[Rfam]
RNA sequence: GUCUGGUCCGAGUGCAGUAGCAUUUACAACUAAUUGAUCACAAGCAGUUACAGAUCUCUUUGUUCCUUCUCCACUUCCACUGCUUCACUCGACUUGCCUAAA
Numbered sequence: 001g002u003c004u005g006g007u008c009c010g011a012g013u014g015c016a017g018u019a020g021c022a023u024u025u026a027c028a029a030c031u032a033a034u035u036g037a038u039c040a041c042a043a044g045c046a047g048u049u050a051c052a053g054a055u056c057u058c059u060u061u062g063u064u065c066c067u068u069c070u071c072c073a074c075u076u077c078c079a080c081u082g083c084u085u086c087a088c089u090c091g092a093c094u095u096g097c098c099u100a101a102a
Base pairs, nucleotide, nucleotide: 001098003096005094006093007092008091010090011089014086016081017080018079020077022076028064029063030062032060033059
The record is a 102-nucleotide RNA from Theropithecus gelada, which matches "Y RNA" in Rfam. The match comes from Rfam's covariance-model search (63 bits). A reference for the family is Van Horn et al. (1995), "Caenorhabditis elegans embryos contain only one major species of Ro RNP", RNA. The organism belongs to Theropithecus, within Eukaryota. Rfam describes the family as follows. Y RNAs are components of the Ro ribonucleoprotein particle (Ro RNP), in association with Ro60 and La proteins. The Y RNAs and Ro60 and La proteins are well conserved, but the function of the Ro RNP is not known. In humans the RNA component can be one of four small RNAs -- hY1, hY3, hY4 and hY5.